Streptomyces-metH RNA: a 146-nucleotide sequence from Streptomyces spinoverrucosus. Rfam classes the family as a small RNA.

RNA sequence: CUGGUCCGCCUCGUGGACGCCCCUGACCAUAGGCGGCCGGUCCCGGCUACCCUGGCCGCGUGCGCUCUUCCCCCGGACUCUCCGGACGAGCAUCCGAAGGAAGCGCAAAGCCGACAGCCGUCGCACUCCAGGGAGCCCCUUAAAUG
Numbered sequence: 001c002u003g004g005u006c007c008g009c010c011u012c013g014u015g016g017a018c019g020c021c022c023c024u025g026a027c028c029a030u031a032g033g034c035g036g037c038c039g040g041u042c043c044c045g046g047c048u049a050c051c052c053u054g055g056c057c058g059c060g061u062g063c064g065c066u067c068u069u070c071c072c073c074c075g076g077a078c079u080c081u082c083c084g085g086a087c088g089a090g091c092a093u094c095c096g097a098a099g100g101a102a103g104c105g106c107a108a109a110g111c112c113g114a115c116a117g118c119c120g121u122c123g124c125a126c127u128c129c130a131g132g133g134a135g136c137c138c139c140u141u142a143a144a145u146g
Base pairs, nucleotide, nucleotide: 061107062106063105064104068102069101070100071099110124111123113122114121115120